The record is a 120-nucleotide sequence from Rhodococcus oxybenzonivorans, which matches "Group II catalytic intron D1-D4-2" in Rfam. Its family is annotated with Group II intron splicing in the Gene Ontology. Rfam's curators write: Group II introns are found in rRNA, tRNA and mRNA of organelles in fungi, plants and protists, and also in mRNA in bacteria. The pairing is the family consensus, mapped onto this sequence.
RNA sequence: GAGGGUGUAUGGCCCCUCGAAGCCGUCCUGCGGGGGAGGGCUUCAAGCCGCCCACUGCUGCGUUGGCUGAAGACCGUCGUGGUGAGCGAUGUGGGAAAAGGCGCACGUGAUGCGUCAGGC
Numbered sequence: 001g002a003g004g005g006u007g008u009a010u011g012g013c014c015c016c017u018c019g020a021a022g023c024c025g026u027c028c029u030g031c032g033g034g035g036g037a038g039g040g041c042u043u044c045a046a047g048c049c050g051c052c053c054a055c056u057g058c059u060g061c062g063u064u065g066g067c068u069g070a071a072g073a074c075c076g077u078c079g080u081g082g083u084g085a086g087c088g089a090u091g092u093g094g095g096a097a098a099a100g101g102c103g104c105a106c107g108u109g110a111u112g113c114g115u116c117a118g119g120c
Base pairs, nucleotide, nucleotide: 001018002017003016004015005014019044020043021042022041023040024039026037027036028035029034049119051095052094053093054092055091056089057083058082060080061079062078064076065075066074100116101115102114103113104112105111